[Rfam]
RNA sequence: GGAAAUAAAUGGCUGUCGUAAUAAACCAUUCGGACCCGGGGGCAGCACCCGGCGCCUCCACCCAAGCCCACUGCCGGUUCCGAUGGCGGGCUUCGGCGGGGGCGAAACAGGAUCGACGAGGGCGUAAAGGGCUCGCUUUUUCCCGGUAUUGUUCCGCCGUUAUCGGGCUACAGCACUAGUUGCAAACGACAACUAUGCUCCGGUUGCUCAGGCUGCGUAA
Numbered sequence: 001g002g003a004a005a006u007a008a009a010u011g012g013c014u015g016u017c018g019u020a021a022u023a024a025a026c027c028a029u030u031c032g033g034a035c036c037c038g039g040g041g042g043c044a045g046c047a048c049c050c051g052g053c054g055c056c057u058c059c060a061c062c063c064a065a066g067c068c069c070a071c072u073g074c075c076g077g078u079u080c081c082g083a084u085g086g087c088g089g090g091c092u093u094c095g096g097c098g099g100g101g102g103c104g105a106a107a108c109a110g111g112a113u114c115g116a117c118g119a120g121g122g123c124g125u126a127a128a129g130g131g132c133u134c135g136c137u138u139u140u141u142c143c144c145g146g147u148a149u150u151g152u153u154c155c156g157c158c159g160u161u162a163u164c165g166g167g168c169u170a171c172a173g174c175a176c177u178a179g180u181u182g183c184a185a186a187c188g189a190c191a192a193c194u195a196u197g198c199u200c201c202g203g204u205u206g207c208u209c210a211g212g213c214u215g216c217g218u219a220a
Stems, first nucleotide, its partner, number of pairs: 001143005015132003026122002030119003036052005053104007144159004

A member of the RNA family "permuted transfer-messenger RNA" from Afipia sp. P52-10, 220 nucleotides long. The base pairs follow the family's consensus structure, which is taken from published work. Rfam links the family to the GO term RNA catabolic process. The source organism's lineage runs through Bacteria, Pseudomonadota, Alphaproteobacteria, Nitrobacteraceae and Afipia.